This 141-nucleotide RNA sequence from Desulfosporosinus acididurans belongs to the Rfam family "c-di-AMP riboswitch aptamer (ydaO/yuaA leader)".
A search with the family's covariance model found it, with a score of 90 bits.

[Rfam]
RNA sequence: AGAAAAAUAAAGCUGAAUCUAGAGAUUACUCUAGAGCGGGGGAUUUUAUUUCUAUACCGGGGUGAAUCGCCACUAUGGCGUAGGGCUGUUACCUUCGCCCGAAUCCGACAACUAACCUCGUAAGCUAUGAAAGGUGAAAAG
Number, nucleotide and partner (000 for none) at each position: 001a000002g000003a000004a000005a000006a000007a000008u000009a000010a000011a126012g125013c124014u123015g000016a000017a000018u035019c034020u033021a032022g031023a030024g029025a000026u000027u000028a000029c024030u023031c022032u021033a020034g019035a018036g121037c120038g119039g118040g117041g116042g000043a000044u000045u000046u059047u000048a000049u000050u000051u000052c000053u000054a000055u000056a000057c000058c000059g046060g106061g105062g104063u000064g000065a000066a000067u000068c080069g079070c078071c077072a000073c000074u000075a000076u000077g071078g070079c069080g068081u000082a000083g100084g099085g098086c097087u000088g000089u000090u000091a000092c000093c000094u000095u000096c000097g086098c085099c084100c083101g000102a000103a000104u062105c061106c060107g000108a000109c000110a000111a000112c000113u000114a000115a000116c041117c040118u039119c038120g037121u036122a000123a014124g013125c012126u011127a000128u000129g000130a000131a000132a000133g000134g000135u000136g000137a000138a000139a000140a000141g000